The family of this 89-nucleotide RNA sequence from Seinonella peptonophila is "SAM riboswitch aptamer (S box leader)". Taxonomically the source falls in Seinonella (Bacteria, Bacillati, Bacillota, Caryophanales).
RNA sequence: CUCUUAUCCAGAGAGGUGAAGGGACAGGCCCGUUGAUACCUCGGCAACCAUCUCAUAUAGAAAAGGUGCCAAUUCCUGCAAGAUGAGAG
Numbered sequence: 001c002u003c004u005u006a007u008c009c010a011g012a013g014a015g016g017u018g019a020a021g022g023g024a025c026a027g028g029c030c031c032g033u034u035g036a037u038a039c040c041u042c043g044g045c046a047a048c049c050a051u052c053u054c055a056u057a058u059a060g061a062a063a064a065g066g067u068g069c070c071a072a073u074u075c076c077u078g079c080a081a082g083a084u085g086a087g088a089g
Base pairs, nucleotide, nucleotide: 001089002088003087004086005085006084007083008082013042014041015040016039017038021031022030023029025078026077027076028075043070044069045068046067048066049065051061052060053059074081
Dot-bracket structure: ((((((((....(((((...(((.[[[[)))......)))))((((.((.(((.....)))...))))))...(]]]]..)))))))))

Pairs were carried over by alignment from the consensus structure, which is taken from published work.